[Rfam]
RNA sequence: UAACUCUGGUGUCUCCUCAUUUGCGGAUAAAUCUUUCGCCUUUUACUAAAGAUUUCCGUAGGGAGGCACAAUACAAUGAGUCUUGUCUCAUUUUUUUCAGCUCUGUCUUCGGACGGAGU
Numbered sequence: 001u002a003a004c005u006c007u008g009g010u011g012u013c014u015c016c017u018c019a020u021u022u023g024c025g026g027a028u029a030a031a032u033c034u035u036u037c038g039c040c041u042u043u044u045a046c047u048a049a050a051g052a053u054u055u056c057c058g059u060a061g062g063g064a065g066g067c068a069c070a071a072u073a074c075a076a077u078g079a080g081u082c083u084u085g086u087c088u089c090a091u092u093u094u095u096u097u098c099a100g101c102u103c104u105g106u107c108u109u110c111g112g113a114c115g116g117a118g119u
Base pairs, nucleotide, nucleotide: 003081004080005079006078009069010068011067012066013065014064015063016062017061019059029055030054031053032052033051034050035049036048099119101118102117103116104115105114106113
The family of this 119-nucleotide sequence from Trichobilharzia regenti is "U5 spliceosomal RNA". Taxonomically the source falls in Trichobilharzia (Eukaryota, Metazoa, Rhabditophora, Neodermata). The match comes from Rfam's covariance-model search (90 bits).